[Rfam]
RNA sequence: UUUGGGAAAUGAUGGAAAGAUUCAAACAAAUUCAUCAGAGGCGCCAGCCCAGCUCAGCUCUGCUGAUUUUUAUUUUUUGCACGUCAGUCUGAUCCCACG
Numbered sequence: 001u002u003u004g005g006g007a008a009a010u011g012a013u014g015g016a017a018a019g020a021u022u023c024a025a026a027c028a029a030a031u032u033c034a035u036c037a038g039a040g041g042c043g044c045c046a047g048c049c050c051a052g053c054u055c056a057g058c059u060c061u062g063c064u065g066a067u068u069u070u071u072a073u074u075u076u077u078u079g080c081a082c083g084u085c086a087g088u089c090u091g092a093u094c095c096c097a098c099g
Base pairs, nucleotide, nucleotide: 001099003097004096005095006094007093
The family of this 99-nucleotide sequence from Carnegiea gigantea is "Small nucleolar RNA Z122". Gene Ontology terms of the family: nucleolus and RNA processing. The organism belongs to Carnegiea, within Eukaryota. The match comes from Rfam's covariance-model search (51 bits).